Rfam assigns this 88-nucleotide sequence from Tumebacillus flagellatus to the family "BsrC". From the family's description: The 301 nucleotide sequence from Kouji Nakamura has been trimmed to a highly conserved ~85 nucleotide long core to form this family. Lineage of the source: Bacteria > Bacillati > Bacillota > Caryophanales > Tumebacillus. On this family, see Saito et al., Gene 2008: "Novel small RNA-encoding genes in the intergenic regions of Bacillus subtilis". It scores 47 bits against the family's covariance model. The base pairs follow the family's consensus structure, which was predicted with CMfinder.

[Rfam]
RNA sequence: GACUGUCGAAACGUCGCAUGCCCUACCUCUCAUGCGACCAUAUGGCUCCUGGGCCACGCCUGUUGUGAAUCGUGGGAAAGUCUAAGAU
Numbered sequence: 001g002a003c004u005g006u007c008g009a010a011a012c013g014u015c016g017c018a019u020g021c022c023c024u025a026c027c028u029c030u031c032a033u034g035c036g037a038c039c040a041u042a043u044g045g046c047u048c049c050u051g052g053g054c055c056a057c058g059c060c061u062g063u064u065g066u067g068a069a070u071c072g073u074g075g076g077a078a079a080g081u082c083u084a085a086g087a088u
Stems, first nucleotide, its partner, number of pairs: 035067002039062002041058001043056005